[Rfam]
RNA sequence: AAACCGCAAGUGUGCAGUCGCUGUGUAACUACAGGUUAUACAGAGGAAAGUCCGAACUUCCCAGGGCAGGGUGCCGGUCGAGAGCCCUUGUGGCUCAAGCCCGGGGGCAGCGGUGCAAACCGUUUGUCACAGAGAGUGCAACAGAAAAAAAACCGCUCCGGGAAACCGGAGUAAGGGUGAAAAGGCGGUGUAAGAGACCACCAGACAUUUCAGAAAUGGGAUGUGCUUGGCAAACCUCCCCGAAGCAAGGCUAAAUAGGAAUGCUUUUCCUUUACGGAAAGAGAGUUGCCCGCUCAAUUCUUCUUCGGAAGAGAGUUUUCGGGUAAGCCGCAUCAGAUAAAUGGCUGCAGUUUUAUCCGGAUUCCGGAUAAUUCACAGAAUUCGGCUUACAGCUUCGGUUUUGGC
Numbered sequence: 001a002a003a004c005c006g007c008a009a010g011u012g013u014g015c016a017g018u019c020g021c022u023g024u025g026u027a028a029c030u031a032c033a034g035g036u037u038a039u040a041c042a043g044a045g046g047a048a049a050g051u052c053c054g055a056a057c058u059u060c061c062c063a064g065g066g067c068a069g070g071g072u073g074c075c076g077g078u079c080g081a082g083a084g085c086c087c088u089u090g091u092g093g094c095u096c097a098a099g100c101c102c103g104g105g106g107g108c109a110g111c112g113g114u115g116c117a118a119a120c121c122g123u124u125u126g127u128c129a130c131a132g133a134g135a136g137u138g139c140a141a142c143a144g145a146a147a148a149a150a151a152a153c154c155g156c157u158c159c160g161g162g163a164a165a166c167c168g169g170a171g172u173a174a175g176g177g178u179g180a181a182a183a184g185g186c187g188g189u190g191u192a193a194g195a196g197a198c199c200a201c202c203a204g205a206c207a208u209u210u211c212a213g214a215a216a217u218g219g220g221a222u223g224u225g226c227u228u229g230g231c232a233a234a235c236c237u238c239c240c241c242g243a244a245g246c247a248a249g250g251c252u253a254a255a256u257a258g259g260a261a262u263g264c265u266u267u268u269c270c271u272u273u274a275c276g277g278a279a280a281g282a283g284a285g286u287u288g289c290c291c292g293c294u295c296a297a298u299u300c301u302u303c304u305u306c307g308g309a310a311g312a313g314a315g316u317u318u319u320c321g322g323g324u325a326a327g328c329c330g331c332a333u334c335a336g337a338u339a340a341a342u343g344g345c346u347g348c349a350g351u352u353u354u355a356u357c358c359g360g361a362u363u364c365c366g367g368a369u370a371a372u373u374c375a376c377a378g379a380a381u382u383c384g385g386c387u388u389a390c391a392g393c394u395u396c397g398g399u400u401u402u403g404g405c
Stems, first nucleotide, its partner, number of pairs: 001401006008395004012390001013349007021043009048388003052385005057245004065306002069241003073238001091103003105130001106128004131237002136235002138231002153176002155172007184202002187199003204226001205224008249329004259320003263316002298313005

Notes
A member of the RNA family "Bacterial RNase P class A" from Chlorobium phaeobacteroides, 405 nucleotides long. The sequence is in the family's curated seed alignment. The source organism's lineage runs through Bacteria, Chlorobiota, Chlorobiales, Chlorobiaceae and Chlorobium phaeobacteroides. It is annotated as a ribozyme. Ribonuclease P (RNase P) is a ubiquitous endoribonuclease, found in archaea, bacteria and eukarya as well as chloroplasts and mitochondria. The family's consensus secondary structure is taken from published work.